[Rfam]
RNA sequence: AAUUGCAAAACGCCGAACCUUUUUAGGGCGGGGGAGAUUUCUUCUUGGGGUGAAUGACGAAACGUCUAGGGCAACCUUUCUGCCCGAACCCGUCAACUAACCUCGUAGGCGAAAGAAAGGAGAAUU
Numbered sequence: 001a002a003u004u005g006c007a008a009a010a011c012g013c014c015g016a017a018c019c020u021u022u023u024u025a026g027g028g029c030g031g032g033g034g035a036g037a038u039u040u041c042u043u044c045u046u047g048g049g050g051u052g053a054a055u056g057a058c059g060a061a062a063c064g065u066c067u068a069g070g071g072c073a074a075c076c077u078u079u080c081u082g083c084c085c086g087a088a089c090c091c092g093u094c095a096a097c098u099a100a101c102c103u104c105g106u107a108g109g110c111g112a113a114a115g116a117a118a119g120g121a122g123a124a125u126u
Stems, first nucleotide, its partner, number of pairs: 011111004018027003028106006038047001048091003056066004069085004
This 126-nucleotide RNA from Paenalicyclobacillus macrosporangiidus belongs to the Rfam family "c-di-AMP riboswitch aptamer (ydaO/yuaA leader)".
Pairs were carried over by alignment from the consensus structure.
Rfam describes the family as follows. This family represents a conserved RNA structure found upstream of the ydaO and yuaA genes in Bacillus subtilis and related genes in other bacteria.
Gene Ontology terms of the family: regulation of gene expression and cyclic-di-AMP binding.
It scores 98 bits against the family's covariance model.